[Rfam]
RNA sequence: AUCGUUCAUCCUAACUAAUAAGGACGGAAGUAAGCUUCAUGCUGAAGGAACGCGCU
Numbered sequence: 001a002u003c004g005u006u007c008a009u010c011c012u013a014a015c016u017a018a019u020a021a022g023g024a025c026g027g028a029a030g031u032a033a034g035c036u037u038c039a040u041g042c043u044g045a046a047g048g049a050a051c052g053c054g055c056u
Stems, first nucleotide, its partner, number of pairs: 003052005009024004027053001033043003
RNA: Glutamine riboswitch aptamer (glnA leader)